[Rfam]
RNA: ALIL pseudoknot
Organism: Nitrogeniibacter mangrovi
RNA sequence: CGCGUUUUUCGCCCAGGCGGAGCUUGACCGCCGCAGGAAAUGAUCAACGCGUUCAUCGACACCAACCGCGAGCGCCUCGGGGUCGAGCCGAUCUGCAAGGCGAUGCAGGUUGCUCCG
Numbered sequence: 001c002g003c004g005u006u007u008u009u010c011g012c013c014c015a016g017g018c019g020g021a022g023c024u025u026g027a028c029c030g031c032c033g034c035a036g037g038a039a040a041u042g043a044u045c046a047a048c049g050c051g052u053u054c055a056u057c058g059a060c061a062c063c064a065a066c067c068g069c070g071a072g073c074g075c076c077u078c079g080g081g082g083u084c085g086a087g088c089c090g091a092u093c094u095g096c097a098a099g100g101c102g103a104u105g106c107a108g109g110u111u112g113c114u115c116c117g
Base pairs, nucleotide, nucleotide: 016032017031018030019029020028078117079116080115081114082113089112090111092109093108094107095106096105097104